[Rfam]
RNA: ASpks TB sRNA
RNA sequence: CUUCAACGACCCCAGCCACAGCGGGCGGUGCGCCGGCCGGCCCUGGCCGUAGGUGGCCAGCAGGGCCUGCGCCUC
Numbered sequence: 001c002u003u004c005a006a007c008g009a010c011c012c013c014a015g016c017c018a019c020a021g022c023g024g025g026c027g028g029u030g031c032g033c034c035g036g037c038c039g040g041c042c043c044u045g046g047c048c049g050u051a052g053g054u055g056g057c058c059a060g061c062a063g064g065g066c067c068u069g070c071g072c073c074u075c
Stems, first nucleotide, its partner, number of pairs: 016024002031071003038065001043060003047056003